[Rfam]
RNA sequence: AUCUGAUAAGGGCAAACUUAUCCGAAAGGAAAGGACGCAAAACCGUGAGCCUGUGUGCAACUAUUGCAUAUGGCUGUCUGGCUGCCGGG
Numbered sequence: 001a002u003c004u005g006a007u008a009a010g011g012g013c014a015a016a017c018u019u020a021u022c023c024g025a026a027a028g029g030a031a032a033g034g035a036c037g038c039a040a041a042a043c044c045g046u047g048a049g050c051c052u053g054u055g056u057g058c059a060a061c062u063a064u065u066g067c068a069u070a071u072g073g074c075u076g077u078c079u080g081g082c083u084g085c086c087g088g089g
Base pairs, nucleotide, nucleotide: 012038013037017033018032019031021030022029023028041083043081044080047078048077049074050073051072056068057067058066059065

This 89-nucleotide sequence from Jeotgalibacillus sp. R-1-5s-1 belongs to the Rfam family "c-di-GMP-I riboswitch aptamer".
Pairs were carried over by alignment from the consensus structure, which is taken from published work.